Guanidine-II riboswitch aptamer (mini-ykkC): a 48-nucleotide RNA from Pseudomonas kuykendallii.
RNA sequence: CACCACGGACGACCGUGGUGUCAACCGAAUAGCGGCGGGACGCCCCGC
Numbered sequence: 001c002a003c004c005a006c007g008g009a010c011g012a013c014c015g016u017g018g019u020g021u022c023a024a025c026c027g028a029a030u031a032g033c034g035g036c037g038g039g040a041c042g043c044c045c046c047g048c
Stems, first nucleotide, its partner, number of pairs: 001020008035048005
It scores 37 bits against the family's covariance model.